[Rfam]
RNA sequence: AAAGCAUCAAUGAUGAGUAAUCCAAUUCGUUAUCCUUGCACUUUGAUUGUUAAAUGAAGAAAAACACGGGGAAUUAUAUCCUGAGAUGCUU
Number, nucleotide and partner (000 for none) at each position: 001a000002a091003a090004g089005c088006a087007u086008c085009a000010a000011u000012g000013a000014u000015g000016a000017g000018u000019a000020a000021u000022c000023c000024a000025a000026u000027u000028c000029g000030u000031u000032a000033u000034c000035c000036u000037u000038g000039c000040a000041c000042u000043u000044u000045g000046a000047u000048u000049g000050u000051u000052a000053a000054a000055u000056g000057a000058a000059g000060a000061a000062a000063a000064a000065c000066a000067c000068g000069g000070g000071g000072a000073a000074u000075u000076a000077u000078a000079u000080c000081c000082u000083g000084a000085g008086a007087u006088g005089c004090u003091u002

Shown here is a 91-nucleotide sequence from Anisodus acutangulus, a member of the family "Small nucleolar RNA snoR26". Taxonomically the source falls in Anisodus (Eukaryota, Viridiplantae, Spermatophyta, Pentapetalae). The family has 8 seed sequences and 611 matches in Rfam 15.1. Rfam links the family to the GO terms RNA processing and nucleolus.